[Rfam]
A member of the RNA family "Metazoan signal recognition particle RNA" from Nestor notabilis, 303 nucleotides long. Rfam classes the family as a non-coding RNA gene. Pairs were carried over by alignment from the consensus structure, which is taken from published work. The source organism's lineage runs through Eukaryota, Vertebrata, Sarcopterygii, Sauropsida and Nestor. A reference for the family is Wild et al. (2002), "Towards the structure of the mammalian signal recognition particle", Curr Opin Struct Biol. Rfam describes the family as follows. The signal recognition particle (SRP) is a universally conserved ribonucleoprotein.

RNA sequence: GCUGGAUCUGGUGGGUCUUGUUUUAAAUACAGCUGGCCUUUGUAGCACAUCUUAUCAAGGCAUUUCUAAGGUGCAUGUUGCCAUAACUGAAUAAUGUAGGAUGCCGAGCGGGCAUCCGCACUAAGGCCGGCAUCAAUAUGGUGAGCCCUGGGGAGCUGGGGGAACACCAGGUUGACUAAGGAGGGCUGAACCGGCCCAGGUUGGAGACGGAGCAGGUCAAAGCUCCUGUGCCGGUCAGUAGCGGGAUCAUGCCUGUGAAUAGUCACUGCAGCGUAGCCUGGGCAACACAGAGAGACGCAGGUU
Numbered sequence: 001g002c003u004g005g006a007u008c009u010g011g012u013g014g015g016u017c018u019u020g021u022u023u024u025a026a027a028u029a030c031a032g033c034u035g036g037c038c039u040u041u042g043u044a045g046c047a048c049a050u051c052u053u054a055u056c057a058a059g060g061c062a063u064u065u066c067u068a069a070g071g072u073g074c075a076u077g078u079u080g081c082c083a084u085a086a087c088u089g090a091a092u093a094a095u096g097u098a099g100g101a102u103g104c105c106g107a108g109c110g111g112g113c114a115u116c117c118g119c120a121c122u123a124a125g126g127c128c129g130g131c132a133u134c135a136a137u138a139u140g141g142u143g144a145g146c147c148c149u150g151g152g153g154a155g156c157u158g159g160g161g162g163a164a165c166a167c168c169a170g171g172u173u174g175a176c177u178a179a180g181g182a183g184g185g186c187u188g189a190a191c192c193g194g195c196c197c198a199g200g201u202u203g204g205a206g207a208c209g210g211a212g213c214a215g216g217u218c219a220a221a222g223c224u225c226c227u228g229u230g231c232c233g234g235u236c237a238g239u240a241g242c243g244g245g246a247u248c249a250u251g252c253c254u255g256u257g258a259a260u261a262g263u264c265a266c267u268g269c270a271g272c273g274u275a276g277c278c279u280g281g282g283c284a285a286c287a288c289a290g291a292g293a294g295a296c297g298c299a300g301g302u303u
Stems, first nucleotide, its partner, number of pairs: 001046003004023004010017002027043003049303001051301003055297001059296001063293005071283002074280002077277001082276001087271003092268002095265002098263001101260002104257001108256008116245002119243001121241003125236009134174004139169005146162003149158003176180001182227004187222001193218004201210003